[Rfam]
A member of the RNA family "mir-BART15 microRNA precursor family" from Pan paniscus, 78 nucleotides long.

RNA sequence: UGUGCCGCUCGAAGGGAAACAUGGCCACCUGAAGUCUGAUAACAAGGUCAGUGGGUAUGUUUCCCUGAUAGAGACACA
Number, nucleotide and partner (000 for none) at each position: 001u078002g077003u076004g075005c000006c073007g000008c071009u070010c000011g000012a000013a066014g065015g064016g063017a062018a061019a060020c059021a058022u000023g000024g056025c055026c054027a000028c000029c051030u050031g049032a048033a000034g000035u047036c046037u045038g000039a000040u000041a000042a000043c000044a000045a037046g036047g035048u032049c031050a030051g029052u000053g000054g026055g025056u024057a000058u021059g020060u019061u018062u017063c016064c015065c014066u013067g000068a000069u000070a009071g008072a000073g006074a000075c004076a003077c002078a001